[Rfam]
RNA: Small nucleolar RNA snoR639/H1
Organism: Chionoecetes opilio
RNA sequence: ACCCCACUAUUAAGCCGAUGGGCCAGGGUGUGUCCCCGGUCCGUGGUAAAGGGUGGGCAAAGCAAUGCCGGCUGUGUGUAGGGUGUGGCCCCCCAACCCUAGGGCCACACCCAAGAAAGGCUGGCCACA
Numbered sequence: 001a002c003c004c005c006a007c008u009a010u011u012a013a014g015c016c017g018a019u020g021g022g023c024c025a026g027g028g029u030g031u032g033u034c035c036c037c038g039g040u041c042c043g044u045g046g047u048a049a050a051g052g053g054u055g056g057g058c059a060a061a062g063c064a065a066u067g068c069c070g071g072c073u074g075u076g077u078g079u080a081g082g083g084u085g086u087g088g089c090c091c092c093c094c095a096a097c098c099c100u101a102g103g104g105c106c107a108c109a110c111c112c113a114a115g116a117a118a119g120g121c122u123g124g125c126c127a128c129a
Stems, first nucleotide, its partner, number of pairs: 018044007069123004081112007090104003